RNA sequence: AAAGUCCACCGCGGAGUAAGGCCUAGCCAGCCGCUCCGGCCCCGAGUGAUGCGCGGCAGUUCGCGAGGGCUGACGUGAAGCGUUCACAGGGGAGACCAUGGGCUGGGUAUUGAGCUGCGAAACUGGCUUUUCCAAGGUGCUGAUCUUUUUUCCGUUGUGGAGAAGGCAACAUCAUCUCAUGCGAUGACUUGGCGAGUGUGAGAUGGACCUUGCGCAGUCGGAGACCC
Numbered sequence: 001a002a003a004g005u006c007c008a009c010c011g012c013g014g015a016g017u018a019a020g021g022c023c024u025a026g027c028c029a030g031c032c033g034c035u036c037c038g039g040c041c042c043c044g045a046g047u048g049a050u051g052c053g054c055g056g057c058a059g060u061u062c063g064c065g066a067g068g069g070c071u072g073a074c075g076u077g078a079a080g081c082g083u084u085c086a087c088a089g090g091g092g093a094g095a096c097c098a099u100g101g102g103c104u105g106g107g108u109a110u111u112g113a114g115c116u117g118c119g120a121a122a123c124u125g126g127c128u129u130u131u132c133c134a135a136g137g138u139g140c141u142g143a144u145c146u147u148u149u150u151u152c153c154g155u156u157g158u159g160g161a162g163a164a165g166g167c168a169a170c171a172u173c174a175u176c177u178c179a180u181g182c183g184a185u186g187a188c189u190u191g192g193c194g195a196g197u198g199u200g201a202g203a204u205g206g207a208c209c210u211u212g213c214g215c216a217g218u219c220g221g222a223g224a225c226c227c
Stems, first nucleotide, its partner, number of pairs: 012038005020032003024195001026193002040092004046087004050082002052077004057072006111221001112219001114218006133212006139167003151161004172206011

Record summary: Group II catalytic intron D1-D4-6: a 227-nucleotide RNA. The family has 174 seed sequences and 1,617 matches in Rfam 15.1. Group II introns are found in rRNA, tRNA and mRNA of organelles in fungi, plants and protists, and also in mRNA in bacteria.